[Rfam]
RNA sequence: CUGGGACUACUGCAUCAGGAACUGAUUGGAUGGGAUACAAAUCAAUCUGUUCCUCAUGCAUGGCUCAC
Dot-bracket structure: ..........(((((.((((((.((.(.(.............).))).)))))).)))))........
Overview: Rfam assigns this 68-nucleotide sequence from Branchiostoma floridae to the family "mir-217 microRNA precursor family". NCBI's taxonomy places the organism under Eukaryota, Eumetazoa, Bilateria, Cephalochordata, Branchiostoma.